Overview
The family of this 80-nucleotide RNA sequence from Medicago truncatula is "MIR5269 microRNA precursor family".
[Rfam]
RNA sequence: UCAGGUGAAAUCAAUGUAUAACCUACACUUUGGAAAUGGAACCCACAUAAAGUGGUGAGACAUACAUUGAUUUCACCUAA
Numbered sequence: 001u002c003a004g005g006u007g008a009a010a011u012c013a014a015u016g017u018a019u020a021a022c023c024u025a026c027a028c029u030u031u032g033g034a035a036a037u038g039g040a041a042c043c044c045a046c047a048u049a050a051a052g053u054g055g056u057g058a059g060a061c062a063u064a065c066a067u068u069g070a071u072u073u074c075a076c077c078u079a080a
Base pairs, nucleotide, nucleotide: 001080003078004077005076006075007074008073009072010071011070012069013068014067015066016065017064018063024057025056026054027053028052029051030050031049032048
The family has 2 seed sequences and 389 matches in Rfam 15.1. The source organism's lineage runs through Eukaryota, Viridiplantae, Embryophyta, Trifolieae and Medicago. The family's consensus secondary structure was predicted with RNAalifold. Rfam links the family to the GO terms miRNA-mediated post-transcriptional gene silencing and RISC complex.